[Rfam]
Nucleotides: 080
Stems, first nucleotide, its partner, number of pairs: 012077001013043006044063003048059003064076003
Number, partner (000 for none) and nucleotide at each position: 001000a002000c003000a004000a005000u006000g007000a008000u009000a010000c011000u012077u013043g014042c015041g016040g017039u018038u019000u020000u021000g022000a023000a024000c025000g026000c027000u028000u029000c030000a031000c032000a033000g034000c035000a036000u037000u038018g039017g040016c041015c042014g043013c044063c045062g046061c047000g048059c049058u050057a051000u052000a053000a054000g055000c056000a057050u058049g059048g060000g061046g062045c063044g064076a065075g066074g067000u068000g069000a070000a071000a072000u073000u074066c075065c076064u077012a078000u079000g080000a